[Rfam]
Overview
The record is a 99-nucleotide sequence from Clostridium thermopalmarium, which matches "Purine riboswitch aptamer" in Rfam.
RNA sequence: AUUAUAAAUUAUAAAUUCACUUAAUAUAUCCCUUGGAUAUGGCAAGGAGUCUCUACCGGAAGCCGUAAAUUUCCGACUAUUAGUGGAUUAUUGCAUAUG
Numbered sequence: 001a002u003u004a005u006a007a008a009u010u011a012u013a014a015a016u017u018c019a020c021u022u023a024a025u026a027u028a029u030c031c032c033u034u035g036g037a038u039a040u041g042g043c044a045a046g047g048a049g050u051c052u053c054u055a056c057c058g059g060a061a062g063c064c065g066u067a068a069a070u071u072u073c074c075g076a077c078u079a080u081u082a083g084u085g086g087a088u089u090a091u092u093g094c095a096u097a098u099g
Base pairs, nucleotide, nucleotide: 018085019084020083021082023081024080025079026078031047032046033045034044035043057075058074059073060072061071062070
It scores 67 bits against the family's covariance model.
Taxonomically the source falls in Clostridium thermopalmarium (Bacteria, Clostridia, Eubacteriales, Clostridiaceae).